[Rfam]
A member of the RNA family "U1A polyadenylation inhibition element (PIE)" from Parambassis ranga, 77 nucleotides long. This family represents the U1A polyadenylation inhibition element (PIE). PIE is a regulatory RNA which is responsible for the regulation of the length of the polyA tail of the U1A pre-mRNA. The PIE is located in the U1A mRNA 3' UTR. PIE adopts a U-shaped structure, with binding sites for a single U1A protein at each bend and when complexed with the two proteins it blocks activity of poly(A) polymerase (PAP), and inhibits its activity. Pairs were carried over by alignment from the consensus structure, which is taken from published work.

RNA sequence: UUAUUGAGCAUUGCACCCAGAGUCUGGUCUGCCAGACAUUGUACCUGGAGCUCUUUCUUUUUAUAAUUAAAUGUUUU
Numbered sequence: 001u002u003a004u005u006g007a008g009c010a011u012u013g014c015a016c017c018c019a020g021a022g023u024c025u026g027g028u029c030u031g032c033c034a035g036a037c038a039u040u041g042u043a044c045c046u047g048g049a050g051c052u053c054u055u056u057c058u059u060u061u062u063a064u065a066a067u068u069a070a071a072u073g074u075u076u077u
Stems, first nucleotide, its partner, number of pairs: 006053004017048004022037005